[Rfam]
RNA sequence: CAUUUAUUGAGUAUAUGGGGAUGAAUUACCGACAUUCAACGUCCAGAAUGCAGGAAAAAAAAAUGGGAGAUAAAAUCCCCCAUUUUGCGAUUAACC
Numbered sequence: 001c002a003u004u005u006a007u008u009g010a011g012u013a014u015a016u017g018g019g020g021a022u023g024a025a026u027u028a029c030c031g032a033c034a035u036u037c038a039a040c041g042u043c044c045a046g047a048a049u050g051c052a053g054g055a056a057a058a059a060a061a062a063a064u065g066g067g068a069g070a071u072a073a074a075a076u077c078c079c080c081c082a083u084u085u086u087g088c089g090a091u092u093a094a095c096c
Stems, first nucleotide, its partner, number of pairs: 008038001010036003016032001018030002061085007069077003
RNA: sraA